[Rfam]
Nucleotides: 171
Stems, first nucleotide, its partner, number of pairs: 001016006029170001031168002035164002041157004046150005063144005072137003076133007083111004089104003
Number, partner (000 for none) and nucleotide at each position: 001016u002015c003014g004013c005012g006011g007000g008000u009000g010000a011006c012005u013004g014003c015002g016001a017000a018000u019000c020000u021000g022000a023000a024000g025000g026000a027000a028000g029170c030000c031168c032167g033000a034000g035164g036163c037000a038000a039000a040000a041157u042156g043155c044154u045000g046150g047149c048148c049147u050146g051000a052000c053000g054000u055000a056000a057000a058000g059000g060000a061000a062000g063144c064143g065142g066141a067140u068000a069000g070000a071000g072137g073136c074135g075000g076133c077132g078131c079130a080129g081128c082127g083111g084110g085109g086108u087000g088000a089104g090103a091102a092000a093000g094000c095000a096000a097000a098000u099000a100000u101000c102091u103090u104089c105000a106000a107000a108086g109085c110084c111083c112000a113000a114000u115000a116000c117000u118000u119000g120000c121000a122000c123000g124000g125000a126000a127082c128081g129080c130079u131078g132077u133076g134000a135074c136073g137072u138000a139000g140067a141066u142065c143064c144063g145000a146050c147049a148048g149047g150046c151000a152000u153000a154044a155043g156042c157041a158000g159000g160000a161000a162000g163036g164035u165000c166000g167032c168031g169000c170029g171000a